[Rfam]
RNA: malK-I RNA
RNA sequence: UCCCUCCCGCCUGCGCUACUCCACCUCUACGUACCGCCCGCGGGAAAUACAAAAGGAGGAACGUUUUCCGCCGAACCGGCGGUGCGGCAGUGUGGAGACCUGCCGUAAAGCGGCGCGCUCAGGCGGCUGCGAGGUCCUGUAUCGCGGAGGCGGCAGGACUGCGGUUCACGAUUAUGGCA
Numbered sequence: 001u002c003c004c005u006c007c008c009g010c011c012u013g014c015g016c017u018a019c020u021c022c023a024c025c026u027c028u029a030c031g032u033a034c035c036g037c038c039c040g041c042g043g044g045a046a047a048u049a050c051a052a053a054a055g056g057a058g059g060a061a062c063g064u065u066u067u068c069c070g071c072c073g074a075a076c077c078g079g080c081g082g083u084g085c086g087g088c089a090g091u092g093u094g095g096a097g098a099c100c101u102g103c104c105g106u107a108a109a110g111c112g113g114c115g116c117g118c119u120c121a122g123g124c125g126g127c128u129g130c131g132a133g134g135u136c137c138u139g140u141a142u143c144g145c146g147g148a149g150g151c152g153g154c155a156g157g158a159c160u161g162c163g164g165u166u167c168a169c170g171a172u173u174a175u176g177g178c179a
Base pairs, nucleotide, nucleotide: 006044007043008042009041010040013037014036015035017033018032068082069081070080071079073167074166075165076164077163078162083107084106085105086104087103088102089101090100092099093098110130111129112128113127114126116125117124118123133160134159135158136157137156138155139154140153143152144151145150